A member of the RNA family "Small nucleolar RNA SNORD59" from Climacteris rufus, 74 nucleotides long.
Rfam classes the family as a C/D-box small nucleolar RNA.
On this family, see Galardi et al., Mol Cell Biol 2002: "Purified box C/D snoRNPs are able to reproduce site-specific 2'-O-methylation of target RNA in vitro".

RNA sequence: CCUUGAUGAUGAUUCACUCCUUGACUUUCGUUCUCCUGAGUUUGCUGAAGCAACAACUCUUUCAUCUGAGGAGG
Numbered sequence: 001c002c003u004u005g006a007u008g009a010u011g012a013u014u015c016a017c018u019c020c021u022u023g024a025c026u027u028u029c030g031u032u033c034u035c036c037u038g039a040g041u042u043u044g045c046u047g048a049a050g051c052a053a054c055a056a057c058u059c060u061u062u063c064a065u066c067u068g069a070g071g072a073g074g
Stems, first nucleotide, its partner, number of pairs: 001074003004070001
The source organism's lineage runs through Eukaryota, Euteleostomi, Sauria, Archosauria and Climacteris.
The family is grouped with related families in Rfam's "SNORD59 clan".